[Rfam]
RNA: mir-363 microRNA precursor family
Organism: Synaphobranchus kaupii
RNA sequence: GCUGUUUUCGGGUGGAUGACUUUGCAAUUUUAGUGAUUUAUAAGAAUUCAAAAAAUUGCACGGUAUCCAUCUGUAAUCCGCC
Numbered sequence: 001g002c003u004g005u006u007u008u009c010g011g012g013u014g015g016a017u018g019a020c021u022u023u024g025c026a027a028u029u030u031u032a033g034u035g036a037u038u039u040a041u042a043a044g045a046a047u048u049c050a051a052a053a054a055a056u057u058g059c060a061c062g063g064u065a066u067c068c069a070u071c072u073g074u075a076a077u078c079c080g081c082c
Stems, first nucleotide, its partner, number of pairs: 009073009019064002023060009